[Rfam]
RNA sequence: UCCUUCCUUGUCAUGGGGUGAGAGAGACGCUCAAUGAACGCGUAGUGAGAGCAUCUCAGCUGACGUCAUGAAACAACACCAACGCACCGACUGAGCUUCGGUUCGGUUCUGGUGCAAUUUUUGGAAAA
Numbered sequence: 001u002c003c004u005u006c007c008u009u010g011u012c013a014u015g016g017g018g019u020g021a022g023a024g025a026g027a028c029g030c031u032c033a034a035u036g037a038a039c040g041c042g043u044a045g046u047g048a049g050a051g052c053a054u055c056u057c058a059g060c061u062g063a064c065g066u067c068a069u070g071a072a073a074c075a076a077c078a079c080c081a082a083c084g085c086a087c088c089g090a091c092u093g094a095g096c097u098u099c100g101g102u103u104c105g106g107u108u109c110u111g112g113u114g115c116a117a118u119u120u121u122u123g124g125a126a127a128a
Stems, first nucleotide, its partner, number of pairs: 006018004020060001026055002029052004038046002084115006091106006
Shown here is a 128-nucleotide RNA sequence from Pleuronectes platessa, a member of the family "U4atac minor spliceosomal RNA". The family's consensus secondary structure is taken from published work. Clan: U4 clan. U4atac is an essential component of the minor U12-type spliceosome complex which is required for removal of the rarer class of eukaryotic introns (AT-AC, U12-type).